RNA: int-alpA RNA
Organism: Solidesulfovibrio carbinoliphilus
RNA sequence: CCCCGCCCUAGGGUAGCUCCCGAAAAGCCGGAACCCUACCGGCCCGGGCGGGGAUCAUUAUAGGG
Numbered sequence: 001c002c003c004c005g006c007c008c009u010a011g012g013g014u015a016g017c018u019c020c021c022g023a024a025a026a027g028c029c030g031g032a033a034c035c036c037u038a039c040c041g042g043c044c045c046g047g048g049c050g051g052g053g054a055u056c057a058u059u060a061u062a063g064g065g
Base pairs, nucleotide, nucleotide: 001053002052003051004050005049006048007047008046011021012020013019027043028042029041030040031039034065035064036063037062038061